[Rfam]
RNA sequence: AGGAGGAACAGUCGCAGUUGCUAUGGCAGCUCUGGAAGCCUGGAUUCAGCCUCCGCAGGAACUACGGGGCUCGGGACUCUCGGUUCUCCGUCCGGCUCCGUCCGGGGCGGG
Numbered sequence: 001a002g003g004a005g006g007a008a009c010a011g012u013c014g015c016a017g018u019u020g021c022u023a024u025g026g027c028a029g030c031u032c033u034g035g036a037a038g039c040c041u042g043g044a045u046u047c048a049g050c051c052u053c054c055g056c057a058g059g060a061a062c063u064a065c066g067g068g069g070c071u072c073g074g075g076a077c078u079c080u081c082g083g084u085u086c087u088c089c090g091u092c093c094g095g096c097u098c099c100g101u102c103c104g105g106g107g108c109g110g111g
Base pairs, nucleotide, nucleotide: 002103003102004101005099006098007097009094011092013090014089020084021083022082025079028071029070030069031068032067033066034065036063039059040058041057042056
A member of the RNA family "mir-8834 microRNA precursor family" from Nyctereutes procyonoides, 111 nucleotides long.